The family of this 129-nucleotide RNA sequence from Dromaius novaehollandiae is "Small Cajal body specific RNA 4". Its family is annotated with nucleolus, RNA processing and Cajal body in the Gene Ontology. NCBI's taxonomy places the organism under Eukaryota, Chordata, Euteleostomi, Casuariiformes, Dromaius.
RNA sequence: ACUGGAGGACUAAUCAGAUGGAGUCUGCAGAGUGAGACUCGGUUAAUACUAGCCUCCUAAAAGAAAAGGAAUGGAGAGAGCAGUCCUACUUAGAGAAGAGCAAGGGGCUGACUGCACCGUCCGACACUA
Numbered sequence: 001a002c003u004g005g006a007g008g009a010c011u012a013a014u015c016a017g018a019u020g021g022a023g024u025c026u027g028c029a030g031a032g033u034g035a036g037a038c039u040c041g042g043u044u045a046a047u048a049c050u051a052g053c054c055u056c057c058u059a060a061a062a063g064a065a066a067a068g069g070a071a072u073g074g075a076g077a078g079a080g081c082a083g084u085c086c087u088a089c090u091u092a093g094a095g096a097a098g099a100g101c102a103a104g105g106g107g108c109u110g111a112c113u114g115c116a117c118c119g120u121c122c123g124a125c126a127c128u129a
Stems, first nucleotide, its partner, number of pairs: 003059001004057005017044003021040006068122003079113002081110007091102001

The family's RNA type in Rfam is small Cajal body RNA.
The family's consensus secondary structure was predicted with RNAfold.
About the family: scaRNAs are a specific class of small nuclear RNAs which localise to the Cajal bodies and guide the modification of RNA polymerase II transcribed spliceosomal RNAs U1, U2, U4, U5 and U12.